[Rfam]
RNA sequence: GCGUAGGUCCACUAGGGUUCCGUCUGCGGCAGCGCAGGGUCUGGUCCGAGAGUGGGCCGGCCUCAUCGCAGGCUCCACGGAGGGACAAAAGCCCGGGAGAA
Numbered sequence: 001g002c003g004u005a006g007g008u009c010c011a012c013u014a015g016g017g018u019u020c021c022g023u024c025u026g027c028g029g030c031a032g033c034g035c036a037g038g039g040u041c042u043g044g045u046c047c048g049a050g051a052g053u054g055g056g057c058c059g060g061c062c063u064c065a066u067c068g069c070a071g072g073c074u075c076c077a078c079g080g081a082g083g084g085a086c087a088a089a090a091g092c093c094c095g096g097g098a099g100a101a
Stems, first nucleotide, its partner, number of pairs: 007057006015047002020044002022041001023038006059074005076096001078099001082094003
Description
Rfam assigns this 101-nucleotide sequence from Hydrogenophaga sp. H7 to the family "Guanidine-I riboswitch aptamer". The source organism's lineage runs through Bacteria, Pseudomonadati, Betaproteobacteria, Burkholderiales and Hydrogenophaga. Rfam links the family to the GO term regulation of gene expression. This family represents a conserved RNA structure found upstream of the ykkC and yxkD genes in Bacillus subtilis and related genes in other bacteria. A search with the family's covariance model found it, with a score of 83 bits. The pairing is the family consensus, mapped onto this sequence.